[Rfam]
This 180-nucleotide sequence from Colius striatus belongs to the Rfam family "Small Cajal body specific RNA 16".
Lineage of the source: Eukaryota > Deuterostomia > Vertebrata > Theropoda > Colius.
On this family, see Darzacq et al., EMBO J 2002: "Cajal body-specific small nuclear RNAs: a novel class of 2'-O-methylation and pseudouridylation guide RNAs".
From the family's description: scaRNAs are a specific class of small nuclear RNAs which localise to the Cajal bodies and guide the modification of RNA polymerase II transcribed spliceosomal RNAs U1, U2, U4, U5 and U12. ACA47 belongs to the H/ACA box class of guide RNAs as it has the predicted hairpin-hinge-hairpin-tail structure, the conserved H/ACA-box motifs and is found associated with GAR1. ACA47 is predicted to guide the pseudouridylation of residue U5 of the U1 spliceosomal snRNA.
Its family is annotated with nucleolus and RNA processing in the Gene Ontology.
The family's RNA type in Rfam is small Cajal body RNA.
Nucleotides: 180
Base pairs, nucleotide, nucleotide: 003074004073005072006071008068009067015062016061017060018059019057020056021055022054024053025052026047027046028045029044030043032041033040087106089103090102091101092100115175116174117173118172119171120170121169122168123167125165126164131159132158133157135155136154137153138152142149
Number, partner (000 for none) and nucleotide at each position: 001000g002000a003074g004073g005072g006071c007000u008068g009067g010000c011000g012000a013000a014000g015062g016061g017060c018059u019057g020056c021055u022054g023000g024053g025052u026047g027046g028045c029044g030043g031000g032041g033040c034000c035000a036000g037000u038000a039000a040033g041032c042000c043030c044029u045028g046027c047026c048000u049000c050000g051000u052025a053024c054022c055021a056020g057019c058000c059018a060017g061016c062015c063000u064000c065000a066000c067009c068008c069000g070000u071006g072005c073004c074003c075000g076000a077000g078000a079000u080000c081000a082000a083000c084000c085000c086000c087106c088000a089103g090102g091101c092100a093000g094000g095000c096000u097000c098000u099000g100092u101091g102090c103089c104000a105000g106087g107000c108000c109000u110000c111000a112000u113000c114000c115175u116174g117173u118172g119171c120170a121169g122168u123167a124000c125165c126164a127000g128000g129000u130000g131159u132158g133157a134000g135155c136154a137153u138152c139000c140000a141000u142149g143000c144000a145000g146000c147000c148000u149142u150000u151000u152138g153137a154136u155135g156000g157133u158132c159131a160000u161000g162000u163000a164126u165125g166000a167123u168122a169121c170120u171119g172118c173117a174116u175115a176000c177000a178000a179000c180000a